Shown here is a 314-nucleotide sequence from Bathyarchaeum sp., a member of the family "Archaeal signal recognition particle RNA".
RNA sequence: UGGCGGGUCUAGGCGGGGGGCUAGGGGUCCUCUGCACCGUAAACCCUCUACAUGACGGGCUGAAUGCCUUGGCGAGGCGUCAAAGAUCGUCAGGCAUCUUCGGUCAUCUAACUGUGACUAUCCGUCCCUUUAGGCUGGCGGUCAUGGAGCGGUCUUCGUAGGAAGGCUGUUAACCGCGUUUACCAGGCGAACCUGGCCAGGCCCGGGAGGGAGCAACCUAAGCUUGGACGUUCAGCGCUUAAGGGACAGCGGGUAAGAGUUCAGAGAUCGAAGAAACUGACGAAAACUAGGCGUCGACCCAAGGUGACCCGCCA
Numbered sequence: 001u002g003g004c005g006g007g008u009c010u011a012g013g014c015g016g017g018g019g020g021c022u023a024g025g026g027g028u029c030c031u032c033u034g035c036a037c038c039g040u041a042a043a044c045c046c047u048c049u050a051c052a053u054g055a056c057g058g059g060c061u062g063a064a065u066g067c068c069u070u071g072g073c074g075a076g077g078c079g080u081c082a083a084a085g086a087u088c089g090u091c092a093g094g095c096a097u098c099u100u101c102g103g104u105c106a107u108c109u110a111a112c113u114g115u116g117a118c119u120a121u122c123c124g125u126c127c128c129u130u131u132a133g134g135c136u137g138g139c140g141g142u143c144a145u146g147g148a149g150c151g152g153u154c155u156u157c158g159u160a161g162g163a164a165g166g167c168u169g170u171u172a173a174c175c176g177c178g179u180u181u182a183c184c185a186g187g188c189g190a191a192c193c194u195g196g197c198c199a200g201g202c203c204c205g206g207g208a209g210g211g212a213g214c215a216a217c218c219u220a221a222g223c224u225u226g227g228a229c230g231u232u233c234a235g236c237g238c239u240u241a242a243g244g245g246a247c248a249g250c251g252g253g254u255a256a257g258a259g260u261u262c263a264g265a266g267a268u269c270g271a272a273g274a275a276a277c278u279g280a281c282g283a284a285a286a287c288u289a290g291g292c293g294u295c296g297a298c299c300c301a302a303g304g305u306g307a308c309c310c311g312c313c314a
Stems, first nucleotide, its partner, number of pairs: 001314009010063001012061003015033007037058004042053001066305007076295005082288001087283007097276001099272007107264001110261004119255007126245005132239002134236004138231003141180001143178001145176003148171010183227006195218002202211003
Lineage of the source: Archaea > Thermoproteati > Bathyarchaeia (SeqCode) > Bathyarchaeaceae (SeqCode) > Bathyarchaeum (SeqCode). Rfam links the family to the GO terms SRP-dependent cotranslational protein targeting to membrane, signal sequence recognition and signal recognition particle, plasma membrane targeting.